[Rfam]
RNA sequence: GAUCAUUGAGGUGGGAAAGGUUCCCCACGCGCUUGCUGAAAAGCAAGUUACCAGAGAUCAGGAUACGCCGCCCUGCUAUGAUC
Numbered sequence: 001g002a003u004c005a006u007u008g009a010g011g012u013g014g015g016a017a018a019g020g021u022u023c024c025c026c027a028c029g030c031g032c033u034u035g036c037u038g039a040a041a042a043g044c045a046a047g048u049u050a051c052c053a054g055a056g057a058u059c060a061g062g063a064u065a066c067g068c069c070g071c072c073c074u075g076c077u078a079u080g081a082u083c
Stems, first nucleotide, its partner, number of pairs: 001083006008076001011028005019069003030054001031048007060074003

Overview
Shown here is an 83-nucleotide RNA sequence from Paenibacillus alvei, a member of the family "skipping-rope RNA". It is one of the family's seed sequences. It is annotated as a small RNA. Lineage of the source: Bacteria > Bacillati > Bacilli > Caryophanales > Paenibacillus alvei.